[Rfam]
RNA sequence: ACAUCCUUUAAUGCAGUCCAGAGAGGCUGGCAAAGGAGAAUACACGAGGACAAGUAUGUCUUCCUGUGCCUCUUUGCCAUGCCUGGCAAAGAGGUUUUUUAA
Numbered sequence: 001a002c003a004u005c006c007u008u009u010a011a012u013g014c015a016g017u018c019c020a021g022a023g024a025g026g027c028u029g030g031c032a033a034a035g036g037a038g039a040a041u042a043c044a045c046g047a048g049g050a051c052a053a054g055u056a057u058g059u060c061u062u063c064c065u066g067u068g069c070c071u072c073u074u075u076g077c078c079a080u081g082c083c084u085g086g087c088a089a090a091g092a093g094g095u096u097u098u099u100u101a102a
Stems, first nucleotide, its partner, number of pairs: 004037006014029005046063007066097001068095012
Dot-bracket structure: ...((((((....(((((......)))))..))))))........(((((((....)))))))..(.((((((((((((....)))))))))))).).....

Shown here is a 102-nucleotide sequence from Jeotgalibacillus sp. R-1-5s-1, a member of the family "PyrR binding site". The organism belongs to Jeotgalibacillus, within Bacteria. This family represents the PyrR binding site and terminator structure. This RNA structure is found upstream of a variety of genes involved in pyrimidine biosynthesis and transport. The alignment also includes a portion of the antiterminator structure. A search with the family's covariance model found it, with a score of 60 bits.